[Rfam]
RNA: Small nucleolar RNA SNORA74
Organism: Sinocyclocheilus anshuiensis
Nucleotides: 198
Stems, first nucleotide, its partner, number of pairs: 002058007011050002015045003021038005068135001071134004075129001080126005086118005092112002094109001097107003138192007152179003156175002160172003
Number, partner (000 for none) and nucleotide at each position: 001000c002058c003057c004056a005055g006054c007053g008052g009000u010000a011050g012049u013000c014000a015045g016044c017043u018000g019000u020000g021038c022037a023036g024035g025034c026000c027000a028000g029000c030000c031000c032000g033000u034025g035024c036023c037022u038021g039000a040000g041000c042000g043017a044016g045015u046000g047000u048000u049012a050011c051000u052008c053007u054006g055005c056004u057003g058002g059000a060000a061000g062000a063000g064000g065000a066000a067000g068135g069000u070000g071134c072133u073132g074131g075129c076000g077000u078000g079000u080126g081125u082124g083123c084122u085000c086118c087117a088116g089115c090114a091000g092112g093111u094109u095000u096000g097107g098106c099105u100000g101000u102000u103000u104000u105099a106098g107097u108000g109094a110000a111093g112092c113000c114090u115089g116088c117087u118086g119000u120000g121000c122084a123083g124082c125081a126080c127000g128000g129075g130000u131074c132073c133072a134071g135068c136000c137000g138192u139191g140190u141189c142188c143187u144186c145000c146000g147000a148000g149000a150000g151000u152179g153178g154177u155000c156175u157174g158000a159000g160172c161171u162170c163000a164000c165000a166000c167000a168000g169000c170162g171161a172160g173000g174157c175156a176000g177154g178153c179152c180000u181000a182000g183000u184000c185000u186144g187143g188142g189141g190140g191139c192138g193000a194000a195000c196000a197000c198000u